[Rfam]
RNA: Guanidine-I riboswitch aptamer
RNA sequence: CACAAUGUUCUCUAGGGUUCCGCUCGCUUCGCGAGGACUGGACCGAGAGAGAACGGUCGAUGCGAACAUCGGCUACACGGAGGGAUAAAAACCCGGGAGAA
Dot-bracket structure: ......((((((..((...((((((((...)))))..).)).))....))))))((((((((....)))))))).(.[...(((.......))).)..]..